[Rfam]
RNA: msiK RNA
RNA sequence: ACUUCAUCUCUUUCACUACGGAUCGUUCGGCACGUACCUGCCGAUGAAAGGACAACACC
Numbered sequence: 001a002c003u004u005c006a007u008c009u010c011u012u013u014c015a016c017u018a019c020g021g022a023u024c025g026u027u028c029g030g031c032a033c034g035u036a037c038c039u040g041c042c043g044a045u046g047a048a049a050g051g052a053c054a055a056c057a058c059c
Stems, first nucleotide, its partner, number of pairs: 009051007027044006